The record is a 127-nucleotide sequence from Bucco capensis, which matches "Small nucleolar RNA ACA64" in Rfam. By type it is an H/ACA-box small nucleolar RNA. The organism belongs to Bucco, within Eukaryota. Its family is annotated with nucleolus and RNA processing in the Gene Ontology. A reference for the family is Schattner et al. (2006), "A computational screen for mammalian pseudouridylation guide H/ACA RNAs", RNA. A search with the family's covariance model found it, with a score of 46 bits.
[Rfam]
RNA sequence: GCUGAAUGUUCAGCUCCUAGUUCAAGGCAUGUGGCCCCUGGUGCGAUAACUGUGCCCACAGCAGAGGGAGCAUUAAACUCAUUGCCCAUGGGAAAGUGUGGGGAGUGAUACCCAUGUUCCUAGAAUC
Numbered sequence: 001g002c003u004g005a006a007u008g009u010u011c012a013g014c015u016c017c018u019a020g021u022u023c024a025a026g027g028c029a030u031g032u033g034g035c036c037c038c039u040g041g042u043g044c045g046a047u048a049a050c051u052g053u054g055c056c057c058a059c060a061g062c063a064g065a066g067g068g069a070g071c072a073u074u075a076a077a078c079u080c081a082u083u084g085c086c087c088a089u090g091g092g093a094a095a096g097u098g099u100g101g102g103g104a105g106u107g108a109u110a111c112c113c114a115u116g117u118u119c120c121u122a123g124a125a126u127c
Stems, first nucleotide, its partner, number of pairs: 005053001008050002013044002016041001020036001022034002067120001069118005079108005087100003